[Rfam]
RNA: gut-2 RNA
RNA sequence: AUCCGUUAAGUGAUUGGGCUUAACGAAGGGCUGAGUGGGGCCGGAAAU
Numbered sequence: 001a002u003c004c005g006u007u008a009a010g011u012g013a014u015u016g017g018g019c020u021u022a023a024c025g026a027a028g029g030g031c032u033g034a035g036u037g038g039g040g041c042c043g044g045a046a047a048u
Stems, first nucleotide, its partner, number of pairs: 004025008029042004